[Rfam]
RNA: MIR7504 microRNA precursor family
RNA sequence: AAUAGUAGAAUGACAAAUUAAAUUUUUCUUCCUGAUUUUCAAUGUUUUCCUCUAGAAAAAAUUCAAAUCUAGGUAAAAAUGCUAAAAAUAAAGAGGAAAAAGUUGAUUUCCCAUUUUCCUAUU
Numbered sequence: 001a002a003u004a005g006u007a008g009a010a011u012g013a014c015a016a017a018u019u020a021a022a023u024u025u026u027u028c029u030u031c032c033u034g035a036u037u038u039u040c041a042a043u044g045u046u047u048u049c050c051u052c053u054a055g056a057a058a059a060a061a062u063u064c065a066a067a068u069c070u071a072g073g074u075a076a077a078a079a080u081g082c083u084a085a086a087a088a089u090a091a092a093g094a095g096g097a098a099a100a101a102g103u104u105g106a107u108u109u110c111c112c113a114u115u116u117u118c119c120u121a122u123u
Base pairs, nucleotide, nucleotide: 001123002122003121004120005119007117008116009115010114011113012112015109016108017107018106019105020104021103023101024100025099026098027097029095030094031093033091035089036088037087038086039085041083045079046078047077048076